Shown here is a 74-nucleotide RNA sequence from Erwinia billingiae, a member of the family "tpke11". A reference for the family is Righetti et al. (2016), "Temperature-responsive in vitro RNA structurome of Yersinia pseudotuberculosis", Proc Natl Acad Sci U S A. The source organism's lineage runs through Bacteria, Pseudomonadati, Gammaproteobacteria, Enterobacterales and Erwinia. It is annotated as a small RNA. It scores 65 bits against the family's covariance model.
RNA sequence: CACUGAUGAUAACCGGCACGGGCGUGGGAAUUUCUCCACGCCCGUGCACGCAUGUUAAGGGCAGGAACACCAGU
Dot-bracket structure: ..(.(.......).)(((((((((.(((......))).)))))))))...........................
Numbered sequence: 001c002a003c004u005g006a007u008g009a010u011a012a013c014c015g016g017c018a019c020g021g022g023c024g025u026g027g028g029a030a031u032u033u034c035u036c037c038a039c040g041c042c043c044g045u046g047c048a049c050g051c052a053u054g055u056u057a058a059g060g061g062c063a064g065g066a067a068c069a070c071c072a073g074u
Stems, first nucleotide, its partner, number of pairs: 003015001005013001016047009026037003